[Rfam]
RNA sequence: UCUUCUGCUUCAACAGUGUUUGGAUGGAACAAA
Numbered sequence: 001u002c003u004u005c006u007g008c009u010u011c012a013a014c015a016g017u018g019u020u021u022g023g024a025u026g027g028a029a030c031a032a033a
Base pairs, nucleotide, nucleotide: 001033003029004028005027007025009024010023011022012021013020014018
A member of the RNA family "Iron response element I" from Suricata suricatta, 33 nucleotides long. A reference for the family is Hentze et al. (1987), "Identification of the iron-responsive element for the translational regulation of human ferritin mRNA", Science. The family's consensus secondary structure is taken from published work. Taxonomically the source falls in Suricata (Eukaryota, Gnathostomata, Boreoeutheria, Laurasiatheria). Rfam links the family to the GO term response to iron ion. The family has 62 seed sequences and 6,829 matches in Rfam 15.1.